This 66-nucleotide RNA from Oriolus oriolus belongs to the Rfam family "Small nucleolar RNA SNORD24".
[Rfam]
RNA sequence: UGCAGAUGAUGAUCGCUUUUUGCUGUGUAAAGAAAUGUGAUGACAACCACCAAGAUCGCUGAUGCA
Numbered sequence: 001u002g003c004a005g006a007u008g009a010u011g012a013u014c015g016c017u018u019u020u021u022g023c024u025g026u027g028u029a030a031a032g033a034a035a036u037g038u039g040a041u042g043a044c045a046a047c048c049a050c051c052a053a054g055a056u057c058g059c060u061g062a063u064g065c066a
Stems, first nucleotide, its partner, number of pairs: 001066004
Dot-bracket structure: ((((..........................................................))))

The source organism's lineage runs through Eukaryota, Teleostomi, Neognathae, Telluraves and Oriolus. The match comes from Rfam's covariance-model search (47 bits). Rfam 15.1 lists 2,843 matches to the family in 1,188 species. Its family is annotated with RNA processing and nucleolus in the Gene Ontology. For this family Rfam cites "U24, a novel intron-encoded small nucleolar RNA with two 12 nt long, phylogenetically conserved complementarities to 28S rRNA" (Qu et al., Nucleic Acids Res, 1995). The family's RNA type in Rfam is C/D-box small nucleolar RNA.